MIR2646 microRNA precursor family: a 255-nucleotide sequence from Medicago truncatula.
RNA sequence: GUCCCAUGACAUUUAGUGAUGAUGUGUCUGUUUUUUUAUCAAUUAAUGUGUGCCACGUGUGUAAUUCCAUUUUUUAAAAAAUAAAAAAAUGGUAUUUUUCAGAUUUUCAGCACUAAAUUCUAUUGUUGGUCACGUGCCUCCUUCUCUCAAAAUCUGAAAAAUACAAUUUUUUUAUUUUUAAAAAAAAUAAAAUUACACAUGUGGCACACAUUAAUUGAUAAAAAACAGACACAUCAGCAUUAAAUGUCAUGGGGA
Numbered sequence: 001g002u003c004c005c006a007u008g009a010c011a012u013u014u015a016g017u018g019a020u021g022a023u024g025u026g027u028c029u030g031u032u033u034u035u036u037u038a039u040c041a042a043u044u045a046a047u048g049u050g051u052g053c054c055a056c057g058u059g060u061g062u063a064a065u066u067c068c069a070u071u072u073u074u075u076a077a078a079a080a081a082u083a084a085a086a087a088a089a090u091g092g093u094a095u096u097u098u099u100c101a102g103a104u105u106u107u108c109a110g111c112a113c114u115a116a117a118u119u120c121u122a123u124u125g126u127u128g129g130u131c132a133c134g135u136g137c138c139u140c141c142u143u144c145u146c147u148c149a150a151a152a153u154c155u156g157a158a159a160a161a162u163a164c165a166a167u168u169u170u171u172u173u174a175u176u177u178u179u180a181a182a183a184a185a186a187a188u189a190a191a192a193u194u195a196c197a198c199a200u201g202u203g204g205c206a207c208a209c210a211u212u213a214a215u216u217g218a219u220a221a222a223a224a225a226c227a228g229a230c231a232c233a234u235c236a237g238c239a240u241u242a243a244a245u246g247u248c249a250u251g252g253g254g255a
Stems, first nucleotide, its partner, number of pairs: 002254017020236017038219029069188007077179014092164015107129006114122002
Lineage of the source: Eukaryota > Embryophyta > Mesangiospermae > Hologalegina > Medicago.